The family of this 132-nucleotide sequence from Microcebus murinus is "Small nucleolar RNA SNORA33". Pairs were carried over by alignment from the consensus structure, which was predicted with PFOLD. The source organism's lineage runs through Eukaryota, Gnathostomata, Sarcopterygii, Primates and Microcebus. From the family's description: ACA33 is a member of the H/ACA class of snoRNA that guide the sites of modification of uridines to pseudouridines.

RNA sequence: AAGCUUGCCAAUGAAUCUGCUCACCUGAAAGUGUUUCUGUAGAAAUUAUUUAAAAGCUGGCAAUAAGUAAAGCCAUGUUACGGGCCUUAAGGACAUCAAAGUCUUUUAUGGUCCCUGGAAAUGGCUAUGACA
Numbered sequence: 001a002a003g004c005u006u007g008c009c010a011a012u013g014a015a016u017c018u019g020c021u022c023a024c025c026u027g028a029a030a031g032u033g034u035u036u037c038u039g040u041a042g043a044a045a046u047u048a049u050u051u052a053a054a055a056g057c058u059g060g061c062a063a064u065a066a067g068u069a070a071a072g073c074c075a076u077g078u079u080a081c082g083g084g085c086c087u088u089a090a091g092g093a094c095a096u097c098a099a100a101g102u103c104u105u106u107u108a109u110g111g112u113c114c115c116u117g118g119a120a121a122u123g124g125c126u127a128u129g130a131c132a
Stems, first nucleotide, its partner, number of pairs: 003061003007057001016043005072125004084112003088108003092103003